Rfam assigns this 261-nucleotide part of an RNA from Pseudonocardiaceae bacterium YIM PH 21723 to the family "Bacterial large subunit ribosomal RNA".
[Rfam]
RNA sequence: GGAGACUUGAAGAAGGCUGUCCCUAGUACGAGAGGACCGGGACGGACUAACCUCUGGUGUGCCAGUUGUUCCGCCAGGAGCAUGGCUGGUUGGCUACGUUGGGAAGGGAUAACCGCUGAAAGCAUCUAAGCGGGAAGCUCGUUCUAAGAUGAGGUCUCCCACCCUCUUGAAGGGUUAAGGCCCCCAGCAGACCACUGGGUUGAUAGGCCAGAGAUGGAAGCUCGGUAACGGGUGGAGUUGACUGGUACUAAUAGGCCGAGG
Numbered sequence: 001g002g003a004g005a006c007u008u009g010a011a012g013a014a015g016g017c018u019g020u021c022c023c024u025a026g027u028a029c030g031a032g033a034g035g036a037c038c039g040g041g042a043c044g045g046a047c048u049a050a051c052c053u054c055u056g057g058u059g060u061g062c063c064a065g066u067u068g069u070u071c072c073g074c075c076a077g078g079a080g081c082a083u084g085g086c087u088g089g090u091u092g093g094c095u096a097c098g099u100u101g102g103g104a105a106g107g108g109a110u111a112a113c114c115g116c117u118g119a120a121a122g123c124a125u126c127u128a129a130g131c132g133g134g135a136a137g138c139u140c141g142u143u144c145u146a147a148g149a150u151g152a153g154g155u156c157u158c159c160c161a162c163c164c165u166c167u168u169g170a171a172g173g174g175u176u177a178a179g180g181c182c183c184c185c186a187g188c189a190g191a192c193c194a195c196u197g198g199g200u201u202g203a204u205a206g207g208c209c210a211g212a213g214a215u216g217g218a219a220g221c222u223c224g225g226u227a228a229c230g231g232g233u234g235g236a237g238u239u240g241a242c243u244g245g246u247a248c249u250a251a252u253a254g255g256c257c258g259a260g261g
Stems, first nucleotide, its partner, number of pairs: 001159008011145004017045007047102005055096003062089005067082006106140003113133005162174003176259001179257004183199005204250003207246005213239002220233005
Dot-bracket structure: ((((((((..((((..(((((((...............))))))).(((((...(((....(((((((((((....))))))..)))))....))).)))))...(((....(((((...........)))))....))).))))......))))))))..(((.......))).(..(((((((((.......)))))....((((((((.((.....(((((....)))))....))..))))).)))...)))).)..

It scores 2824 bits against the family's covariance model. NCBI's taxonomy places the organism under Bacteria, Bacillati, Actinomycetota, Actinomycetes, Pseudonocardiaceae.